[Rfam]
RNA sequence: CCGUACUUAGACGGAUAGUGAUAGUGAUUUUACUAUUUCUAAUUUUAAGUAUGAUGUUGUGUUUGCAUAUUGGUCUAGGAAACUAGACUAGAGUGAAAAUCUUUGAUUUUUACUCGUUUCACUUCCUGUAUAUUUUUUUAACCCUUUUGGUUUUAUGCCCCUCACUUUGAGGGGCUUUUUUUA
Numbered sequence: 001c002c003g004u005a006c007u008u009a010g011a012c013g014g015a016u017a018g019u020g021a022u023a024g025u026g027a028u029u030u031u032a033c034u035a036u037u038u039c040u041a042a043u044u045u046u047a048a049g050u051a052u053g054a055u056g057u058u059g060u061g062u063u064u065g066c067a068u069a070u071u072g073g074u075c076u077a078g079g080a081a082a083c084u085a086g087a088c089u090a091g092a093g094u095g096a097a098a099a100u101c102u103u104u105g106a107u108u109u110u111u112a113c114u115c116g117u118u119u120c121a122c123u124u125c126c127u128g129u130a131u132a133u134u135u136u137u138u139u140a141a142c143c144c145u146u147u148u149g150g151u152u153u154u155a156u157g158c159c160c161c162u163c164a165c166u167u168u169g170a171g172g173g174g175c176u177u178u179u180u181u182u183a
Stems, first nucleotide, its partner, number of pairs: 004041002010039002014037008023028001071090008092114009130153001132151003157175007

A member of the RNA family "GcvB RNA" from Pseudohaemophilus paraphrohaemolyticus, 183 nucleotides long. The literature on the family includes a 2007 paper in Genes Dev by Sharma et al., "A small RNA regulates multiple ABC transporter mRNAs by targeting C/A-rich elements inside and upstream of ribosome-binding sites". About the family: The gcvB gene encodes a small untranslated RNA involved in expression of the dipeptide and oligopeptide transport systems in Escherichia coli. Included several unknown homologues in alignment (Bateman A pers obs). It base-pairs with SorC. This interaction triggers the degradation of GcvB by RNase E, alleviating the GcvB-mediated mRNA repression of other amino acid-related transport and metabolic genes. Rfam classes the family as a non-coding RNA gene. Lineage of the source: Bacteria > Gammaproteobacteria > Pasteurellales > Pasteurellaceae > Pseudohaemophilus. Its family is annotated with mRNA binding and regulation of gene expression in the Gene Ontology.